[Rfam]
RNA sequence: AUGUGUCUAACUUCAUAGACUCGUAUAAUAGCAGGGAUAUGGCCUGCAAGUCUCUACCGGAUCGCCGUAAAUGAUCCGACUACGGGUGUCGCAUAAAACGUG
Numbered sequence: 001a002u003g004u005g006u007c008u009a010a011c012u013u014c015a016u017a018g019a020c021u022c023g024u025a026u027a028a029u030a031g032c033a034g035g036g037a038u039a040u041g042g043c044c045u046g047c048a049a050g051u052c053u054c055u056a057c058c059g060g061a062u063c064g065c066c067g068u069a070a071a072u073g074a075u076c077c078g079a080c081u082a083c084g085g086g087u088g089u090c091g092c093a094u095a096a097a098a099c100g101u102g
Stems, first nucleotide, its partner, number of pairs: 019087007029049001031047005058078007

The record is a 102-nucleotide sequence from Fictibacillus enclensis, which matches "Purine riboswitch aptamer" in Rfam. Lineage of the source: Bacteria > Bacillati > Bacilli > Caryophanales > Fictibacillus. The family's consensus secondary structure is taken from published work. About the family: Riboswitches are metabolite binding domains within certain messenger RNAs that serve as precision sensors for their corresponding targets. Allosteric rearrangement of mRNA structure is mediated by ligand binding, and this results in modulation of gene expression. A class of riboswitches that selectively recognises guanine and becomes saturated at concentrations as low as 5 nM. In Bacillus subtilis, this mRNA motif is located on at least five separate transcriptional units that together encode 17 genes that are mostly involved in purine transport and purine nucleotide biosynthesis.